[Rfam]
Nucleotides: 238
Base pairs, nucleotide, nucleotide: 011233012232013231015110016109017108018107023038024037025036026035027034028033049102050101051100052099054097055096056095058094059093112230113229114228115227118226119225120224127223128222129221130220131219133218134217135216136215137214138213
Number, partner (000 for none) and nucleotide at each position: 001000g002000c003000c004000g005000u006000g007000a008000a009000a010000g011233c012232c013231c014000u015110c016109g017108a018107u019000u020000c021000u022000c023038u024037g025036u026035c027034u028033a029000u030000c031000g032000g033028u034027a035026g036025a037024c038023g039000g040000c041000c042000u043000a044000c045000g046000c047000a048000c049102g050101g051100g052099a053000a054097c055096g056095a057000c058094g059093g060000a061000g062000a063000u064000u065000u066000u067000u068000u069000c070000a071000a072000c073000u074000a075000c076000u077000u078000g079000a080000u081000a082000g083000u084000c085000c086000c087000u088000c089000u090000u091000u092000a093059c094058c095056u096055c097054g098000c099052u100051c101050c102049c103000u104000u105000a106000a107018g108017u109016u110015g111000a112230c113229g114228c115227c116000u117000a118226u119225g120224c121000g122000c123000c124000u125000g126000c127223g128222c129221g130220g131219g132000a133218a134217u135216g136215a137214c138213g139000a140000u141000g142000a143000a144000a145000a146000a147000c148000a149000a150000a151000c152000c153000u154000u155000g156000a157000u158000a159000u160000a161000a162000g163000c164000c165000u166000u167000u168000c169000c170000a171000u172000u173000c174000u175000a176000a177000a178000u179000u180000g181000u182000u183000u184000u185000u186000u187000u188000c189000u190000a191000u192000u193000a194000g195000c196000c197000a198000u199000u200000u201000c202000u203000a204000a205000a206000a207000a208000a209000c210000c211000a212000c213138c214137g215136u216135c217134g218133u219131c220130c221129c222128g223127c224120g225119c226118a227115g228114g229113c230112g231013g232012g233011g234000a235000c236000c237000c238000a

Notes
Shown here is a 238-nucleotide sequence from Coxiella burnetii, a member of the family "Coxiella burnetii sRNA 3". The literature on the family includes a 2014 paper in PLoS One by Warrier et al., "Identification of novel small RNAs and characterization of the 6S RNA of Coxiella burnetii". It scores 129 bits against the family's covariance model. The family's consensus secondary structure was predicted with CMfinder.